msiK RNA: a 58-nucleotide RNA sequence from Metallococcus carri. Rfam classes the family as a cis-regulatory element.
RNA sequence: UCGGGCCGACUUUCACAACGGAUCGUCCGGCACGUUCCUGCCGGUGAAGGAGAUUUCC
Numbered sequence: 001u002c003g004g005g006c007c008g009a010c011u012u013u014c015a016c017a018a019c020g021g022a023u024c025g026u027c028c029g030g031c032a033c034g035u036u037c038c039u040g041c042c043g044g045u046g047a048a049g050g051a052g053a054u055u056u057c058c
Base pairs, nucleotide, nucleotide: 010050011049012048013047014046015045027044028043029042030041031040032039

The base pairs follow the family's consensus structure, which is taken from published work.